mir-8/mir-141/mir-200 microRNA precursor family: a 70-nucleotide RNA from Bombyx mori. Gene Ontology terms of the family: miRNA-mediated post-transcriptional gene silencing and RISC complex. The literature on the family includes a 2001 paper in Science by Lagos-Quintana et al., "Identification of novel genes coding for small expressed RNAs". The family is grouped with related families in Rfam's "mir-8 microRNA precursor clan". The source organism's lineage runs through Eukaryota, Neoptera, Aparaglossata, Heteroneura and Bombyx.

RNA sequence: GUUCGCAUCUUACCGGGCAGCAUUAGAGUCCUGUCUAUAUUUUCUAAUACUGUCAGGUAAAGAUGUCGUC
Numbered sequence: 001g002u003u004c005g006c007a008u009c010u011u012a013c014c015g016g017g018c019a020g021c022a023u024u025a026g027a028g029u030c031c032u033g034u035c036u037a038u039a040u041u042u043u044c045u046a047a048u049a050c051u052g053u054c055a056g057g058u059a060a061a062g063a064u065g066u067c068g069u070c
Base pairs, nucleotide, nucleotide: 003068005066006065007064008063009062010060011059012058013057014056016054017053018052019051020050022048023047024046025045026044027043
It is one of the family's seed sequences.